[Rfam]
A member of the RNA family "Nuclear RNase P" from Fusarium venenatum, 308 nucleotides long.
Ribonuclease P (RNase P) is a ubiquitous endoribonuclease, found in archaea, bacteria and eukarya as well as chloroplasts and mitochondria.

RNA sequence: GCCCGAAUCUCUCAAGACACGAGAUCUUCGGUUCUCAUCGUCAUCUACAUGCAUGUGGGAAAUUCGGAGUAAGCCUCAAAUCCACCAACCGUACCGCUAUCUAGCAGUAACUGGUUUGGUCUGCCGGUAACGGCCUGGCGUCAAUGUUACGUCUGCAAAUGAUAUCAGAAAUCUCAGAGCGGCGACUCGUUUCGUCGAUCUCUAUGGGAAGUCUUUGCGAGGCUUGUUGCAAAAAACUGAAGUGCGAUACGCGGCGUCCUGUUUGCUUGCGAGCAGGAUGACUCAAUUCCGAUCACUCUGGGGAGGGC
Numbered sequence: 001g002c003c004c005g006a007a008u009c010u011c012u013c014a015a016g017a018c019a020c021g022a023g024a025u026c027u028u029c030g031g032u033u034c035u036c037a038u039c040g041u042c043a044u045c046u047a048c049a050u051g052c053a054u055g056u057g058g059g060a061a062a063u064u065c066g067g068a069g070u071a072a073g074c075c076u077c078a079a080a081u082c083c084a085c086c087a088a089c090c091g092u093a094c095c096g097c098u099a100u101c102u103a104g105c106a107g108u109a110a111c112u113g114g115u116u117u118g119g120u121c122u123g124c125c126g127g128u129a130a131c132g133g134c135c136u137g138g139c140g141u142c143a144a145u146g147u148u149a150c151g152u153c154u155g156c157a158a159a160u161g162a163u164a165u166c167a168g169a170a171a172u173c174u175c176a177g178a179g180c181g182g183c184g185a186c187u188c189g190u191u192u193c194g195u196c197g198a199u200c201u202c203u204a205u206g207g208g209a210a211g212u213c214u215u216u217g218c219g220a221g222g223c224u225u226g227u228u229g230c231a232a233a234a235a236a237c238u239g240a241a242g243u244g245c246g247a248u249a250c251g252c253g254g255c256g257u258c259c260u261g262u263u264u265g266c267u268u269g270c271g272a273g274c275a276g277g278a279u280g281a282c283u284c285a286a287u288u289c290c291g292a293u294c295a296c297u298c299u300g301g302g303g304a305g306g307g308c
Base pairs, nucleotide, nucleotide: 001308002307003306004301006299010254011253013251017056018055019054021052022046023045024044025043065291066290067289068288069287074222075221076220077219123134124133125132126131137153138152139151140150141149155218156217157216158215159214161212176203177202178201256279257278258277259276260275261274262273263272264271